This 91-nucleotide sequence from Aramus guarauna belongs to the Rfam family "mir-7 microRNA precursor family".
Pairs were carried over by alignment from the consensus structure, which was predicted with PFOLD.
Lineage of the source: Eukaryota > Teleostomi > Neoaves > Gruiformes > Aramus.
The literature on the family includes a 2001 paper in Science by Lagos-Quintana et al., "Identification of novel genes coding for small expressed RNAs".
This family represents the microRNA (miRNA) precursor mir-7.
[Rfam]
RNA sequence: UGGUCUAGUUCUGUGUGGAAGACUAGUGAUUUUGUUGUUUUUAGAUAACUUAAGUGACAACAAGUCACAGUCUGCCAUAUGGCACAGACUU
Number, nucleotide and partner (000 for none) at each position: 001u000002g090003g089004u088005c087006u086007a000008g085009u084010u000011c082012u081013g080014u079015g078016u077017g076018g075019a000020a073021g072022a071023c070024u069025a000026g068027u067028g066029a065030u064031u063032u062033u000034g061035u060036u059037g058038u057039u056040u000041u000042u000043a000044g000045a000046u000047a000048a000049c000050u000051u000052a000053a000054g000055u000056g039057a038058c037059a036060a035061c034062a032063a031064g030065u029066c028067a027068c026069a024070g023071u022072c021073u020074g000075c018076c017077a016078u015079a014080u013081g012082g011083c000084a009085c008086a006087g005088a004089c003090u002091u000